[Rfam]
RNA sequence: ACCAGCUGUGCGGCCCAAAGCGACGCGCAGGGCUGCUUCAAGGAUGCAGGCAUCCGCGGCUGGACCAAUUCUUUAGCGCACCGGCCGGCUCGUAGGGCUGCCGGUGCG
Number, nucleotide and partner (000 for none) at each position: 001a000002c063003c062004a061005g060006c059007u058008g057009u056010g036011c035012g000013g033014c032015c000016c031017a000018a000019a000020g000021c000022g000023a000024c000025g000026c000027g000028c000029a000030g000031g016032g014033c013034u000035g011036c010037u000038u000039c000040a000041a000042g055043g054044a053045u052046g051047c000048a000049g000050g000051c046052a045053u044054c043055c042056g009057c008058g007059g006060c005061u004062g003063g002064a000065c000066c000067a000068a000069u000070u000071c000072u000073u000074u000075a000076g000077c000078g107079c000080a000081c104082c103083g102084g101085c000086c100087g099088g098089c097090u096091c000092g000093u000094a000095g000096g090097g089098c088099u087100g086101c084102c083103g082104g081105u000106g000107c078108g000
Xanthomonas sRNA sX2: a 108-nucleotide RNA from Xanthomonas albilineans.
The match comes from Rfam's covariance-model search (54 bits).
The source organism's lineage runs through Bacteria, Gammaproteobacteria, Lysobacteraceae, Xanthomonas and Xanthomonas albilineans.